RNA sequence: GUGUUUUUUCAUAAGUAUUAGAUUUAAGGUUAACAAAGAUUGGUUGCUCGUGAUGAGUAGCCAAUCUUUGUUUUAG
Number, nucleotide and partner (000 for none) at each position: 001g000002u000003g000004u000005u000006u000007u000008u000009u000010c000011a000012u000013a000014a000015g000016u000017a000018u000019u000020a000021g000022a000023u000024u000025u000026a000027a000028g000029g000030u000031u000032a000033a000034c000035a000036a000037a000038g000039a000040u000041u000042g062043g061044u060045u059046g058047c057048u056049c000050g000051u000052g000053a000054u000055g000056a048057g047058u046059a045060g044061c043062c042063a000064a000065u000066c000067u000068u000069u000070g000071u000072u000073u000074u000075a000076g000

The family of this 76-nucleotide RNA from Bacteroides reticulotermitis is "Bacteroidetes FopS (family of paralogous sRNAs)". A reference for the family is Ruttiger et al. (2025), "The global RNA-binding protein RbpB is a regulator of polysaccharide utilization in Bacteroides thetaiotaomicron", Nat Commun. The RNA-binding protein RbpB and BTncRNA_FopS sRNA are involved in the post-transcription regulation of polysaccharide utilisation loci (PUL). FopS sRNAs function as post-transcriptional repressors by binding to the vicinity of the start codon of the first mRNA of target PUL polycistrons, typically corresponding to the cognate SusC homolog, impeding translation of the respective glycan transporter. Rfam links the family to the GO term sRNA-mediated gene silencing. The organism belongs to Bacteroides reticulotermitis, within Bacteria.